RNA sequence: UACCGAGCGUCGCGAGAUGACGGGAUGAGCGUGCAGAAGUCAGCCGAGGCCGAAGUAAGUGGCGAAUAACCGUGUCACCAAGGGC
Numbered sequence: 001u002a003c004c005g006a007g008c009g010u011c012g013c014g015a016g017a018u019g020a021c022g023g024g025a026u027g028a029g030c031g032u033g034c035a036g037a038a039g040u041c042a043g044c045c046g047a048g049g050c051c052g053a054a055g056u057a058a059g060u061g062g063c064g065a066a067u068a069a070c071c072g073u074g075u076c077a078c079c080a081a082g083g084g085c
Stems, first nucleotide, its partner, number of pairs: 001027002004023001008019004040047002049085003059078006
RNA: Group II catalytic intron D1-D4-1
Organism: Pseudomonas fluorescens